This 100-nucleotide RNA from Clostridium perfringens belongs to the Rfam family "Purine riboswitch aptamer". Its family is annotated with purine nucleobase biosynthetic process in the Gene Ontology. Riboswitches are metabolite binding domains within certain messenger RNAs that serve as precision sensors for their corresponding targets. Allosteric rearrangement of mRNA structure is mediated by ligand binding, and this results in modulation of gene expression. A class of riboswitches that selectively recognises guanine and becomes saturated at concentrations as low as 5 nM. In Bacillus subtilis, this mRNA motif is located on at least five separate transcriptional units that together encode 17 genes that are mostly involved in purine transport and purine nucleotide biosynthesis. It has also been shown that some members of this family are specific for adenine instead. The family's consensus secondary structure is taken from published work.
RNA sequence: AUAAAAAAAUAAAUUUUGCUUCGUAUAACUCUAAUGAUAUGGAUUAGAGGUCUCUACCAAGAACCGAGAAUUCUUGAUUACGAAGAAAGCUUAUUUGCUU
Numbered sequence: 001a002u003a004a005a006a007a008a009a010u011a012a013a014u015u016u017u018g019c020u021u022c023g024u025a026u027a028a029c030u031c032u033a034a035u036g037a038u039a040u041g042g043a044u045u046a047g048a049g050g051u052c053u054c055u056a057c058c059a060a061g062a063a064c065c066g067a068g069a070a071u072u073c074u075u076g077a078u079u080a081c082g083a084a085g086a087a088a089g090c091u092u093a094u095u096u097g098c099u100u
Stems, first nucleotide, its partner, number of pairs: 019085007029049007058076006